This 63-nucleotide RNA from Synaphobranchus kaupii belongs to the Rfam family "mir-7552 microRNA precursor family". It scores 68 bits against the family's covariance model.
RNA sequence: UUACAAUUAAAGGAUAUUUCUUGCAGCACUAUACGAAACAGAAAUAUCUUUUAGUUGUUUGGC
Numbered sequence: 001u002u003a004c005a006a007u008u009a010a011a012g013g014a015u016a017u018u019u020c021u022u023g024c025a026g027c028a029c030u031a032u033a034c035g036a037a038a039c040a041g042a043a044a045u046a047u048c049u050u051u052u053a054g055u056u057g058u059u060u061g062g063c
Stems, first nucleotide, its partner, number of pairs: 003058008012049010024035001
The organism belongs to Synaphobranchus, within Eukaryota.